[Rfam]
RNA sequence: UUUCUAGUUUGACUGAAACAUUUUCUCCUAAUAAUAGGUUUUAGUGGCUAUGCUUAUGGGAUAGAUUAAAAUUGCCAUGAUCUGAAAAUGAUUUAUUUGUUUCCUCCUCCUAUAUGAAAUGGCUGAAUAGAAAAUU
Dot-bracket structure: ...((.(..........((........................))...........).)).............((((..........(.((................)).)........)))).............
RNA: Small nucleolar RNA SNORA29